[Rfam]
RNA sequence: AACUGAAAAAGGCAAACUUAUCGAAAGGUAAGGACGCAAAGCCACGAGUCUAAGGCGUUUUAGCUAUGAUCGUCGGGCUGCCAAA
Numbered sequence: 001a002a003c004u005g006a007a008a009a010a011g012g013c014a015a016a017c018u019u020a021u022c023g024a025a026a027g028g029u030a031a032g033g034a035c036g037c038a039a040a041g042c043c044a045c046g047a048g049u050c051u052a053a054g055g056c057g058u059u060u061u062a063g064c065u066a067u068g069a070u071c072g073u074c075g076g077g078c079u080g081c082c083a084a085a
Stems, first nucleotide, its partner, number of pairs: 012037002017032006040079004045075003048070003055064002
Description: The family of this 85-nucleotide RNA from Mesobacillus boroniphilus is "c-di-GMP-I riboswitch aptamer". The organism belongs to Mesobacillus boroniphilus, within Bacteria. GEMM was predicted in a large-scale screen for bacterial structured RNA regulatory elements.